[Rfam]
A member of the RNA family "Bacterial RNase P class A" from Thiohalospira halophila, 358 nucleotides long. Gene Ontology terms of the family: tRNA processing, dimeric ribonuclease P complex and ribonuclease P activity. It scores 316 bits against the family's covariance model. Rfam classes the family as a ribozyme.
RNA sequence: GGAGUCGGUCAGGCAGUCGCUGCUUCGCCAUCGGGCGGCGCGGAGGAAAGUCCGGGCUCCACAGGGCAGGGUGCCAGGUAACGCCUGGGCGGCGCGAGCCGACGGAAAGUGCCACAGAAAACAGACCGCCCAAGCGCCCCGCGGGGCGCCGGCAAGGGUGAAAAGGUGCGGUAAGAGCGCACCGCGCCGGCGGCAACGUCGGCGGCACGGCAAACCCCACCCGGAGCAAGGCCGAAUAGGGGGGCAGACGGUGUGGCCCGCAUCCGCCCCCGGGUAGGCUGCUUGAGGCGUGCGGCGACGCACGUCCCAGACGAAUGACUGUCCGCGACAGAACCCGGCUUAACGACCGGCUCCUUCU
Numbered sequence: 001g002g003a004g005u006c007g008g009u010c011a012g013g014c015a016g017u018c019g020c021u022g023c024u025u026c027g028c029c030a031u032c033g034g035g036c037g038g039c040g041c042g043g044a045g046g047a048a049a050g051u052c053c054g055g056g057c058u059c060c061a062c063a064g065g066g067c068a069g070g071g072u073g074c075c076a077g078g079u080a081a082c083g084c085c086u087g088g089g090c091g092g093c094g095c096g097a098g099c100c101g102a103c104g105g106a107a108a109g110u111g112c113c114a115c116a117g118a119a120a121a122c123a124g125a126c127c128g129c130c131c132a133a134g135c136g137c138c139c140c141g142c143g144g145g146g147c148g149c150c151g152g153c154a155a156g157g158g159u160g161a162a163a164a165g166g167u168g169c170g171g172u173a174a175g176a177g178c179g180c181a182c183c184g185c186g187c188c189g190g191c192g193g194c195a196a197c198g199u200c201g202g203c204g205g206c207a208c209g210g211c212a213a214a215c216c217c218c219a220c221c222c223g224g225a226g227c228a229a230g231g232c233c234g235a236a237u238a239g240g241g242g243g244g245c246a247g248a249c250g251g252u253g254u255g256g257c258c259c260g261c262a263u264c265c266g267c268c269c270c271c272g273g274g275u276a277g278g279c280u281g282c283u284u285g286a287g288g289c290g291u292g293c294g295g296c297g298a299c300g301c302a303c304g305u306c307c308c309a310g311a312c313g314a315a316u317g318a319c320u321g322u323c324c325g326c327g328a329c330a331g332a333a334c335c336c337g338g339c340u341u342a343a344c345g346a347c348c349g350g351c352u353c354c355u356u357c358u
Base pairs, nucleotide, nucleotide: 001354002353003352004351005350006349007348008347009346010345012323013322014321015320016319017318018317020043021042022041023040025038026037027036028035048341049340050339052338053337054336055335056334057226058225059224060223064259065258066257067256069222070221071220072219073218074088075087076086077085078084089103090101091100092099093098104217105216109215110214111211112210113209126157127156128153129152130151134149135148136147137146138145139144165183166182167181168180169179170178184206185204186203187202188201189200190199191198192197230280231279232278233277240271241270242269243268244267245266250264251263252262253261254260287306288305289304290303291302292301293300294299
NCBI's taxonomy places the organism under Bacteria, Pseudomonadati, Thiohalospirales, Thiohalospira, Thiohalospira halophila.